Rfam assigns this 114-nucleotide RNA sequence from Pontibacter sp. SGAir0037 to the family "Group II catalytic intron D1-D4-1".
About the family: Group II introns are found in rRNA, tRNA and mRNA of organelles in fungi, plants and protists, and also in mRNA in bacteria.
Rfam 15.1 lists 2,508 matches to the family in 1,144 species.
The match comes from Rfam's covariance-model search (45 bits).
The base pairs follow the family's consensus structure.
[Rfam]
RNA sequence: UUACCUGGGGAGGUCUCCCUCUGUCGUGAACACAGGGAGAAGUCAGCAGAGGCCAUAGUAGGUAGAGGUAACGAGCCGGGAAGCACCCGGAGGUCUCACAAGCUACCGAAGGGC
Numbered sequence: 001u002u003a004c005c006u007g008g009g010g011a012g013g014u015c016u017c018c019c020u021c022u023g024u025c026g027u028g029a030a031c032a033c034a035g036g037g038a039g040a041a042g043u044c045a046g047c048a049g050a051g052g053c054c055a056u057a058g059u060a061g062g063u064a065g066a067g068g069u070a071a072c073g074a075g076c077c078g079g080g081a082a083g084c085a086c087c088c089g090g091a092g093g094u095c096u097c098a099c100a101a102g103c104u105a106c107c108g109a110a111g112g113g114c
Stems, first nucleotide, its partner, number of pairs: 001030002004023001007020005043050002052114003061107005